[Rfam]
RNA sequence: CCCGGUAUGUUCCUACCGGACCCUACGCAGGCGUGCUACCGUUGCGCUGAUGACGGGGUGCGAAGCCCUGCGGACAAUGUACCGAAUCGGGUUCAAAUGGUAACAGGCGAAUCCAUCCGGGAAUCCUCCCCGGUUAAGGGC
Numbered sequence: 001c002c003c004g005g006u007a008u009g010u011u012c013c014u015a016c017c018g019g020a021c022c023c024u025a026c027g028c029a030g031g032c033g034u035g036c037u038a039c040c041g042u043u044g045c046g047c048u049g050a051u052g053a054c055g056g057g058g059u060g061c062g063a064a065g066c067c068c069u070g071c072g073g074a075c076a077a078u079g080u081a082c083c084g085a086a087u088c089g090g091g092u093u094c095a096a097a098u099g100g101u102a103a104c105a106g107g108c109g110a111a112u113c114c115a116u117c118c119g120g121g122a123a124u125c126c127u128c129c130c131c132g133g134u135u136a137a138g139g140g141c
Stems, first nucleotide, its partner, number of pairs: 002019006027071005032062006039056006089114004098105002117133005